[Rfam]
Source information: Shown here is a 91-nucleotide RNA from Sphingomonas sp. Leaf33, a member of the family "TPP riboswitch aptamer (THI element)". The organism belongs to Sphingomonas, within Bacteria.

RNA sequence: UCCCCGGGGGAGCGCCGACCCGCGCUUGAGAGGAGGGCAGGAGCCUUCGACCCGCUGAACCUGAUCCGGCUGACACCGGCGUAGGGAGGGA
Numbered sequence: 001u002c003c004c005c006g007g008g009g010g011a012g013c014g015c016c017g018a019c020c021c022g023c024g025c026u027u028g029a030g031a032g033g034a035g036g037g038c039a040g041g042a043g044c045c046u047u048c049g050a051c052c053c054g055c056u057g058a059a060c061c062u063g064a065u066c067c068g069g070c071u072g073a074c075a076c077c078g079g080c081g082u083a084g085g086g087a088g089g090g091a
Stems, first nucleotide, its partner, number of pairs: 001091004005054004010048001011026005033047004060085004066079004